This 128-nucleotide sequence from Escherichia coli belongs to the Rfam family "Histidine operon leader".
By type it is a cis-regulatory leader.
Pairs were carried over by alignment from the consensus structure, which is taken from published work.
The sequence is in the family's curated seed alignment.
Taxonomically the source falls in Escherichia (Bacteria, Pseudomonadati, Pseudomonadota, Enterobacteriaceae).
At least 6 amino acid operons are known to be regulated by attenuation. In each a leader sequence of 150-200 bp is found upstream of the first gene in the operon.

[Rfam]
RNA sequence: CCAUCAUCACCAUCAUCCUGACUAGUCUUUCAGGCGAUGUGUGCUGGAAGACAUUCAGAUCCAGUAAUGACCUCAGAACUCCAUCUGGAUUUGUUCAGAACGCUCGGUUGCCGCCGGGCGUUUUUUAU
Dot-bracket structure: .......(((((((..(((((........))))).)))).)))(((((...........)))))................................((((((((((((....))))))))))))....